[Rfam]
RNA sequence: UAACCUACUAAAGGACUGCCGAAGACAGUAGGUGCUUGAAAGAGCGUAAGAACACAUUUUAUGCGGACGCCUACCGAGGAAAGAUCGAUACUAAAGUAUGACUUAUCAACCUCUAUGUCUUUGGAUAUAGAGGUUUUUUUACAUUUAU
Numbered sequence: 001u002a003a004c005c006u007a008c009u010a011a012a013g014g015a016c017u018g019c020c021g022a023a024g025a026c027a028g029u030a031g032g033u034g035c036u037u038g039a040a041a042g043a044g045c046g047u048a049a050g051a052a053c054a055c056a057u058u059u060u061a062u063g064c065g066g067a068c069g070c071c072u073a074c075c076g077a078g079g080a081a082a083g084a085u086c087g088a089u090a091c092u093a094a095a096g097u098a099u100g101a102c103u104u105a106u107c108a109a110c111c112u113c114u115a116u117g118u119c120u121u122u123g124g125a126u127a128u129a130g131a132g133g134u135u136u137u138u139u140u141a142c143a144u145u146u147a148u
Stems, first nucleotide, its partner, number of pairs: 028074006034045003110133010